[Rfam]
RNA sequence: AUUGAUCUUCGGGGUCGGGUGCAAGUCCCAACCGGCGGUAUAGUCCGCGACCCGCUGUUUCAGCGGCUGAACCGGUGACUUUCUUCAGAAGGAAUUCCGGUACCGACAGUAUAGUCUGGAUGAGAGAAGAGAUUC
Numbered sequence: 001a002u003u004g005a006u007c008u009u010c011g012g013g014g015u016c017g018g019g020u021g022c023a024a025g026u027c028c029c030a031a032c033c034g035g036c037g038g039u040a041u042a043g044u045c046c047g048c049g050a051c052c053c054g055c056u057g058u059u060u061c062a063g064c065g066g067c068u069g070a071a072c073c074g075g076u077g078a079c080u081u082u083c084u085u086c087a088g089a090a091g092g093a094a095u096u097c098c099g100g101u102a103c104c105g106a107c108a109g110u111a112u113a114g115u116c117u118g119g120a121u122g123a124g125a126g127a128a129g130a131g132a133u134u135c
Stems, first nucleotide, its partner, number of pairs: 006130005017029003031115002033105002035048004043103002052066002071101005107118003
This 135-nucleotide sequence from Lachnoclostridium sp. An169 belongs to the Rfam family "FMN riboswitch aptamer (RFN element)". The source organism's lineage runs through Bacteria, Bacillati, Clostridia, Lachnospirales and Lachnoclostridium.